RNA sequence: UUGCGUGCGAGGCAGACUAAGUACCCCACGUCCUGUGGCAACGUCUGCACUAGCACGUCCUAUGCG
Numbered sequence: 001u002u003g004c005g006u007g008c009g010a011g012g013c014a015g016a017c018u019a020a021g022u023a024c025c026c027c028a029c030g031u032c033c034u035g036u037g038g039c040a041a042c043g044u045c046u047g048c049a050c051u052a053g054c055a056c057g058u059c060c061u062a063u064g065c066g
Base pairs, nucleotide, nucleotide: 012048013047014046015045016044017043026038027037028036029035053065054064055063

Bacillaceae-1 RNA: a 66-nucleotide sequence from Virgibacillus salinus. By type it is a small RNA. The base pairs follow the family's consensus structure, which is taken from published work.